[Rfam]
RNA sequence: UUCGGUGACGGGUAUUCUUGGGUGGAUAAUACGGCUCUCGUUGUUAUUGCUUAAGAAUACGCGUAGUUGAG
Numbered sequence: 001u002u003c004g005g006u007g008a009c010g011g012g013u014a015u016u017c018u019u020g021g022g023u024g025g026a027u028a029a030u031a032c033g034g035c036u037c038u039c040g041u042u043g044u045u046a047u048u049g050c051u052u053a054a055g056a057a058u059a060c061g062c063g064u065a066g067u068u069g070a071g
Stems, first nucleotide, its partner, number of pairs: 001071005008064003012060012025048007032040002
Dot-bracket structure: (((((..(((.((((((((((((.(((((((((.....)).))))))))))))))))))).)))..)))))
RNA: mir-137 microRNA precursor family
Organism: Danio rerio